[Rfam]
RNA: Small nucleolar RNA SNORD22
RNA sequence: UCCCAGUGAAGAAACACCCAAAUGUCUUACCUCCUGUCCUAGUCCCAGGGCCUGCAAAGGUGAACCCACUAGGACUGACUGGGGGAGAAGAGGAAAUUUGGCUCCCCAAGGAACUGUCUGAGGGAU
Numbered sequence: 001u002c003c004c005a006g007u008g009a010a011g012a013a014a015c016a017c018c019c020a021a022a023u024g025u026c027u028u029a030c031c032u033c034c035u036g037u038c039c040u041a042g043u044c045c046c047a048g049g050g051c052c053u054g055c056a057a058a059g060g061u062g063a064a065c066c067c068a069c070u071a072g073g074a075c076u077g078a079c080u081g082g083g084g085g086a087g088a089a090g091a092g093g094a095a096a097u098u099u100g101g102c103u104c105c106c107c108a109a110g111g112a113a114c115u116g117u118c119u120g121a122g123g124g125a126u
Base pairs, nucleotide, nucleotide: 001125002124003123004122
Dot-bracket structure: ((((.....................................................................................................................)))).